The family of this 89-nucleotide RNA from Polytolypa hystricis is "tRNA". The organism belongs to Polytolypa hystricis, within Eukaryota. Gene Ontology term of the family: triplet codon-amino acid adaptor activity. It is annotated as a transfer RNA. A search with the family's covariance model found it, with a score of 51 bits.
[Rfam]
RNA sequence: GGUUGUGUGGUCUAGGGGUUAUGACACGAGAUUCUGACGCUCUCCAAAGAAGCGUUCUCGUAACCUGGGUUCGAUUCCCAGCACGACCU
Numbered sequence: 001g002g003u004u005g006u007g008u009g010g011u012c013u014a015g016g017g018g019u020u021a022u023g024a025c026a027c028g029a030g031a032u033u034c035u036g037a038c039g040c041u042c043u044c045c046a047a048a049g050a051a052g053c054g055u056u057c058u059c060g061u062a063a064c065c066u067g068g069g070u071u072c073g074a075u076u077c078c079c080a081g082c083a084c085g086a087c088c089u
Stems, first nucleotide, its partner, number of pairs: 001088007010025003027060005065081005
Dot-bracket structure: (((((((..(((..........))).(((((........................)))))....(((((.......)))))))))))).